[Rfam]
The family of this 71-nucleotide RNA sequence from Ceyx cyanopectus is "Small nucleolar RNA SNORD56".
It scores 52 bits against the family's covariance model.

RNA sequence: CUGCCGUGAUGGGAACAUUUUUCGUCAGCAGCAUCUCACUCCGUGAAUGGUGACGACUCUGGUCUGAGCAG
Numbered sequence: 001c002u003g004c005c006g007u008g009a010u011g012g013g014a015a016c017a018u019u020u021u022u023c024g025u026c027a028g029c030a031g032c033a034u035c036u037c038a039c040u041c042c043g044u045g046a047a048u049g050g051u052g053a054c055g056a057c058u059c060u061g062g063u064c065u066g067a068g069c070a071g
Stems, first nucleotide, its partner, number of pairs: 002070003008026004